The family of this 155-nucleotide sequence from Paraburkholderia steynii is "Group II catalytic intron D1-D4-7".
[Rfam]
RNA sequence: CCUGCUGUGCGACCAGCAGUAGCCUAGGAGGACAUGCGUCACUGGCAACGGUGGGGUAUGAAGCUUCUCCGACAAUGUAGCCCCCGGAUGUUUCGGGCGGAUGUCUAUCGUGAGAUAGGCCUCCGGAGACUCCUAGCAGCGAAGGGGUUGAGGAG
Dot-bracket structure: .((((((......))))))........((((((((((.((((((....)))))).)))))....))))).............((((((...))))))((((......((....))......))))...((((((........)))))).......
Numbered sequence: 001c002c003u004g005c006u007g008u009g010c011g012a013c014c015a016g017c018a019g020u021a022g023c024c025u026a027g028g029a030g031g032a033c034a035u036g037c038g039u040c041a042c043u044g045g046c047a048a049c050g051g052u053g054g055g056g057u058a059u060g061a062a063g064c065u066u067c068u069c070c071g072a073c074a075a076u077g078u079a080g081c082c083c084c085c086g087g088a089u090g091u092u093u094c095g096g097g098c099g100g101a102u103g104u105c106u107a108u109c110g111u112g113a114g115a116u117a118g119g120c121c122u123c124c125g126g127a128g129a130c131u132c133c134u135a136g137c138a139g140c141g142a143a144g145g146g147g148u149u150g151a152g153g154a155g
Stems, first nucleotide, its partner, number of pairs: 002019006028069005033060005039054006083097006098125004108115002129148006

For this family Rfam cites "The ins and outs of group II introns" (Bonen and Vogel, Trends Genet, 2001). Rfam's curators write: Group II introns are found in rRNA, tRNA and mRNA of organelles in fungi, plants and protists, and also in mRNA in bacteria. A search with the family's covariance model found it, with a score of 121 bits. The family has 244 seed sequences and 1,296 matches in Rfam 15.1. Taxonomically the source falls in Paraburkholderia (Bacteria, Pseudomonadati, Betaproteobacteria, Burkholderiaceae).